Rfam assigns this 45-nucleotide RNA from Nyctereutes procyonoides to the family "Histone 3' UTR stem-loop".
It is annotated as a cis-regulatory element.
The family's consensus secondary structure is taken from published work.
From the family's description: The mRNAs of metazoan histone genes lack a poly-A tail. 3' end processing occurs at a site between a highly conserved stem-loop (modelled by this family) and a purine rich region around 20 nts downstream (the histone downstream element, or HDE). The stem-loop is bound by a 31 kDa stem-loop binding protein (SLBP - also termed the histone hairpin binding protein, or HBP). Together with U7 snRNA binding of the HDE, SLBP binding nucleate s the formation of the processing complex. The histone 3' UTR stem-loop is also involved in nucleocytoplasmic transport of the mRNA, and in stability regulation and translation efficiency in the cytoplasm.
[Rfam]
RNA sequence: UCAAAGGCUCUUUUCAGAGCCACCUAUAACUUCACAAAGAGAAAG
Number, nucleotide and partner (000 for none) at each position: 001u000002c000003a000004a000005a000006g021007g020008c019009u018010c017011u016012u000013u000014u000015c000016a011017g010018a009019g008020c007021c006022a000023c000024c000025u000026a000027u000028a000029a000030c000031u000032u000033c000034a000035c000036a000037a000038a000039g000040a000041g000042a000043a000044a000045g000